[Rfam]
RNA: MicA sRNA
RNA sequence: GAAAGACGCGCAAAUUGUUAUCAUCCCUAAUUCUCUAAGAGAUUUUUUAUUUGGCCACCACUGUGUGGCCAUUUU
Numbered sequence: 001g002a003a004a005g006a007c008g009c010g011c012a013a014a015u016u017g018u019u020a021u022c023a024u025c026c027c028u029a030a031u032u033c034u035c036u037a038a039g040a041g042a043u044u045u046u047u048u049a050u051u052u053g054g055c056c057a058c059c060a061c062u063g064u065g066u067g068g069c070c071a072u073u074u075u
Stems, first nucleotide, its partner, number of pairs: 023043003027039002053070006